[Rfam]
RNA sequence: AUUGCGGCUGUCUCUAAUUCGCUUGGUGCAGGUCGGGACUAAUUCGCCGGCGGCGGCGUAAAUCACGACGGCGGUUAUUAUUCUUAAACGAAGUUUAGAUGUACGAAGUUAUCAACAAUUUCCUUUUGCGGCUUUUGGUCCCGCCUUGCAUCAACUGAAUUGGAGACUGCUGUGAAU
Numbered sequence: 001a002u003u004g005c006g007g008c009u010g011u012c013u014c015u016a017a018u019u020c021g022c023u024u025g026g027u028g029c030a031g032g033u034c035g036g037g038a039c040u041a042a043u044u045c046g047c048c049g050g051c052g053g054c055g056g057c058g059u060a061a062a063u064c065a066c067g068a069c070g071g072c073g074g075u076u077a078u079u080a081u082u083c084u085u086a087a088a089c090g091a092a093g094u095u096u097a098g099a100u101g102u103a104c105g106a107a108g109u110u111a112u113c114a115a116c117a118a119u120u121u122c123c124u125u126u127u128g129c130g131g132c133u134u135u136u137g138g139u140c141c142c143g144c145c146u147u148g149c150a151u152c153a154a155c156u157g158a159a160u161u162g163g164a165g166a167c168u169g170c171u172g173u174g175a176a177u
Stems, first nucleotide, its partner, number of pairs: 013164002017160004023154010034143009
The record is a 177-nucleotide sequence from Nicotiana attenuata, which matches "MIR168 microRNA precursor family" in Rfam. The organism belongs to Nicotiana, within Eukaryota. It scores 84 bits against the family's covariance model. A reference for the family is Reinhart et al. (2002), "MicroRNAs in plants", Genes Dev. Its family is annotated with miRNA-mediated post-transcriptional gene silencing and RISC complex in the Gene Ontology. Rfam 15.1 lists 518 matches to the family in 218 species.